[Rfam]
RNA sequence: CUAUGGGAGCGGCGACGCUACCGGAUGGGAUGUAAGAAGUCAGCAGAGGGCAUAGUAGUUAGCUGCAUGUACGGCACUAACGAAGGCC
Numbered sequence: 001c002u003a004u005g006g007g008a009g010c011g012g013c014g015a016c017g018c019u020a021c022c023g024g025a026u027g028g029g030a031u032g033u034a035a036g037a038a039g040u041c042a043g044c045a046g047a048g049g050g051c052a053u054a055g056u057a058g059u060u061a062g063c064u065g066c067a068u069g070u071a072c073g074g075c076a077c078u079a080a081c082g083a084a085g086g087c088c
Stems, first nucleotide, its partner, number of pairs: 001027001004023003008019004040047002049088003058081005
The family of this 88-nucleotide RNA is "Group II catalytic intron D1-D4-1".
Rfam's curators put it in the seed alignment.